[Rfam]
RNA sequence: AGUCAAGAGUUUGAAGCCCCAGCAGAAGUGCUCACAGCAUGGCUCUGUUAGUUUCCAGUGAAUCUACAAAUUCUGCU
Numbered sequence: 001a002g003u004c005a006a007g008a009g010u011u012u013g014a015a016g017c018c019c020c021a022g023c024a025g026a027a028g029u030g031c032u033c034a035c036a037g038c039a040u041g042g043c044u045c046u047g048u049u050a051g052u053u054u055c056c057a058g059u060g061a062a063u064c065u066a067c068a069a070a071u072u073c074u075g076c077u
Base pairs, nucleotide, nucleotide: 013045015044016043017042018041021077022076023075024074025073026072027071028040029039030038049066050065051064053062054061055060
Mammalian CPEB3 ribozyme: a 77-nucleotide sequence from Alligator sinensis.
The match comes from Rfam's covariance-model search (50 bits).
Pairs were carried over by alignment from the consensus structure, which is taken from published work.
From the family's description: The mammalian CPEB3 ribozyme is a self cleaving RNA located in the second intron of the CPEB3 gene which belongs to a family of genes regulating messenger RNA polyadenylation. This ribozyme is highly conserved and found only in mammals. The CPEB3 ribozyme is structurally and biochemically related to the human hepatitis delta virus (HDV) ribozyme and the HDV ribozyme is proposed to have arisen from the human transcriptome.